[Rfam]
RNA sequence: UGGAUGAAGCUAGAGAAGUGGAGUAUGACACGAGCAUGUAUCAUUUUAGUGAGCAUGUACCUCCAGCGAGGGGGAGCAAGAGUUUGAGUGAAGCUCACAUGAACAACAGCAAGUUGUAGAAGUUGUGCAAGAAACAAGAUAAGUUACUCACCAAGUGCUUCAACACUAUCAAGUUUCUCACGGACAAGCUAAGCUGCUCCUCUCCCACUACAGCUAUUCCA
Number, nucleotide and partner (000 for none) at each position: 001u221002g220003g219004a218005u000006g000007a000008a000009g000010c000011u210012a000013g208014a000015g205016a000017a203018g202019u000020g200021g199022a198023g197024u196025a195026u000027g000028a000029c000030a000031c000032g000033a000034g000035c000036a000037u000038g000039u000040a000041u000042c000043a000044u000045u000046u000047u000048a000049g000050u000051g000052a000053g000054c000055a000056u000057g000058u000059a000060c000061c000062u000063c000064c000065a000066g000067c000068g000069a000070g000071g000072g000073g000074g000075a000076g000077c000078a000079a000080g000081a000082g000083u000084u000085u000086g000087a000088g000089u000090g000091a000092a000093g000094c000095u000096c000097a000098c000099a000100u000101g000102a000103a000104c000105a000106a000107c000108a000109g000110c000111a000112a000113g000114u000115u000116g000117u000118a000119g000120a000121a000122g000123u000124u000125g000126u000127g000128c000129a000130a000131g000132a000133a000134a000135c000136a000137a000138g000139a000140u000141a000142a000143g000144u000145u000146a000147c000148u000149c000150a000151c000152c000153a000154a000155g000156u000157g000158c000159u000160u000161c000162a000163a000164c000165a000166c000167u000168a000169u000170c000171a000172a000173g000174u000175u000176u000177c000178u000179c000180a000181c000182g000183g000184a000185c000186a000187a000188g000189c000190u000191a000192a000193g000194c000195u025196g024197c023198u022199c021200c020201u000202c018203u017204c000205c015206c000207a000208c013209u000210a011211c000212a000213g000214c000215u000216a000217u000218u004219c003220c002221a001